[Rfam]
RNA: mir-2 microRNA precursor family
Organism: Mytilus coruscus
RNA sequence: CUUGAUGUCGAAGUGGUUGUGACAUGUUGUUAAAUUUUCAUAUCACAGCCAGCUUUGAUGACAAGAA
Numbered sequence: 001c002u003u004g005a006u007g008u009c010g011a012a013g014u015g016g017u018u019g020u021g022a023c024a025u026g027u028u029g030u031u032a033a034a035u036u037u038u039c040a041u042a043u044c045a046c047a048g049c050c051a052g053c054u055u056u057g058a059u060g061a062c063a064a065g066a067a
Stems, first nucleotide, its partner, number of pairs: 006060008014051009025042003